[Rfam]
RNA: Selenocysteine transfer RNA
RNA sequence: GGGAGUAUAUAAGUGCUGGUGUGCUUCCUGGUCUUCAAAACCAGUGUGGGGCGUUUAUAGCGUCCUGGGUGGGUUCGAUUCCCAUAUACUCCC
Number, nucleotide and partner (000 for none) at each position: 001g093002g092003g091004a090005g089006u088007a087008u086009a085010u000011a026012a025013g024014u023015g022016c021017u000018g000019g000020u000021g016022u015023g014024c013025u012026u011027c000028c044029u043030g042031g041032u040033c000034u000035u000036c000037a000038a000039a000040a032041c031042c030043a029044g028045u000046g000047u067048g066049g065050g064051g063052c000053g000054u000055u000056u000057a000058u000059a000060g000061c000062g000063u051064c050065c049066u048067g047068g000069g000070u084071g083072g082073g081074u000075u000076c000077g000078a000079u000080u000081c073082c072083c071084a070085u009086a008087u007088a006089c005090u004091c003092c002093c001